The family of this 69-nucleotide sequence from Actinoplanes cyaneus is "ASpks TB sRNA". Pairs were carried over by alignment from the consensus structure, which is taken from published work. The literature on the family includes a 2009 paper in Mol Microbiol by Arnvig and Young, "Identification of small RNAs in Mycobacterium tuberculosis". The organism belongs to Actinoplanes, within Bacteria.
RNA sequence: CUUGAUCGAGCCGAGGUGGAGCGGCUCGCCGUCGCGCUGGCCGUACGUGGCCAGCAGCGCCUGCGCCUC
Numbered sequence: 001c002u003u004g005a006u007c008g009a010g011c012c013g014a015g016g017u018g019g020a021g022c023g024g025c026u027c028g029c030c031g032u033c034g035c036g037c038u039g040g041c042c043g044u045a046c047g048u049g050g051c052c053a054g055c056a057g058c059g060c061c062u063g064c065g066c067c068u069c
Base pairs, nucleotide, nucleotide: 014026015025017023033063035059036058037054038053039052041050042049043048